[Rfam]
Rfam assigns this 89-nucleotide RNA sequence from Peribacillus cavernae to the family "pan motif". Rfam classes the family as a cis-regulatory element. NCBI's taxonomy places the organism under Bacteria, Bacilli, Caryophanales, Bacillaceae, Peribacillus. The match comes from Rfam's covariance-model search (65 bits).
RNA sequence: UGGGCAGUAUCUUAGGUGAACUGCACCUGGUAAGAAAAUAAUAAAACAAAUUUCUGCCUUGAUCCAGGAUGCUGGACGGGGACGGAGGG
Dot-bracket structure: .(((((((.((......))))))).))..........................((((((((.(((((....)))))))))).)))....